Shown here is a 91-nucleotide RNA, a member of the family "c-di-GMP-II-GAG riboswitch aptamer". Its family is annotated with cyclic-di-GMP binding and regulation of gene expression in the Gene Ontology.
[Rfam]
RNA sequence: AGCCAAAGGGAGACUGUGAUGCUCCGGGGGAACGCGGUCACCUACACACGUCCCCGGCGUUGAGUCAGUGGUGAGACCGGCCCACAUGGCC
Numbered sequence: 001a002g003c004c005a006a007a008g009g010g011a012g013a014c015u016g017u018g019a020u021g022c023u024c025c026g027g028g029g030g031a032a033c034g035c036g037g038u039c040a041c042c043u044a045c046a047c048a049c050g051u052c053c054c055c056g057g058c059g060u061u062g063a064g065u066c067a068g069u070g071g072u073g074a075g076a077c078c079g080g081c082c083c084a085c086a087u088g089g090c091c
Base pairs, nucleotide, nucleotide: 002090003089004088005087008083009082010081012066013065014064021060022059024057025056026055027054028053036078037077038074039073040072041071042070